[Rfam]
RNA sequence: AAUAGUCUUCAGGGCGGGGUGUAAGUCCCCACCGGCGGUAUAGCCCGCGAGCCGUUAAGGUUGAUUCGGUUAAAUUCCGAAGCCGACAGUUAAAGUCUGGAUGGAAGAAGGUAAAG
Numbered sequence: 001a002a003u004a005g006u007c008u009u010c011a012g013g014g015c016g017g018g019g020u021g022u023a024a025g026u027c028c029c030c031a032c033c034g035g036c037g038g039u040a041u042a043g044c045c046c047g048c049g050a051g052c053c054g055u056u057a058a059g060g061u062u063g064a065u066u067c068g069g070u071u072a073a074a075u076u077c078c079g080a081a082g083c084c085g086a087c088a089g090u091u092a093a094a095g096u097c098u099g100g101a102u103g104g105a106a107g108a109a110g111g112u113a114a115a116g
Base pairs, nucleotide, nucleotide: 003114005112006111007110008109009108010107017029018028019027031096032095033085034084035048036047037046038045043083044082051061052060053059065081066080067079068078069077087099088098089097
RNA: FMN riboswitch aptamer (RFN element)